RNA sequence: CCGAUACAAUGAUGAAACCAUAGUUCAGCAGACUAGCAGUGAUGAGCAAAAUUGUCUUUCGCUCCUAUCUGAUGUAUCUG
Numbered sequence: 001c002c003g004a005u006a007c008a009a010u011g012a013u014g015a016a017a018c019c020a021u022a023g024u025u026c027a028g029c030a031g032a033c034u035a036g037c038a039g040u041g042a043u044g045a046g047c048a049a050a051a052u053u054g055u056c057u058u059u060c061g062c063u064c065c066u067a068u069c070u071g072a073u074g075u076a077u078c079u080g
Stems, first nucleotide, its partner, number of pairs: 004077005
Dot-bracket structure: ...(((((................................................................)))))...

The family of this 80-nucleotide RNA sequence from Gulo gulo is "Small nucleolar RNA snR60/Z15/Z230/Z193/J17". The family has 23 seed sequences and 3,592 matches in Rfam 15.1. Its family is annotated with nucleolus and RNA processing in the Gene Ontology. The base pairs follow the family's consensus structure. NCBI's taxonomy places the organism under Eukaryota, Euteleostomi, Laurasiatheria, Musteloidea, Gulo.